About this RNA
Rfam assigns this 115-nucleotide RNA sequence from Sinomicrobium oceani to the family "SAM riboswitch aptamer (S box leader)". The organism belongs to Sinomicrobium, within Bacteria. Rfam 15.1 lists 9,625 matches to the family in 4,158 species.
RNA sequence: AAGUUAUCAAGAAAGGCAGAGGGAAUAGACCCGGUGAAGCCUUAGCAACCCUCCGUGCCUGAAGCGGAGAAGGUGCUAAAUUCUACCCCUGUGGCGACAUGGGGACAGAUGACGC
Numbered sequence: 001a002a003g004u005u006a007u008c009a010a011g012a013a014a015g016g017c018a019g020a021g022g023g024a025a026u027a028g029a030c031c032c033g034g035u036g037a038a039g040c041c042u043u044a045g046c047a048a049c050c051c052u053c054c055g056u057g058c059c060u061g062a063a064g065c066g067g068a069g070a071a072g073g074u075g076c077u078a079a080a081u082u083c084u085a086c087c088c089c090u091g092u093g094g095c096g097a098c099a100u101g102g103g104g105a106c107a108g109a110u111g112a113c114g115c
Stems, first nucleotide, its partner, number of pairs: 003113006013043005021032003026085004044077004049073002051069006081107001086104004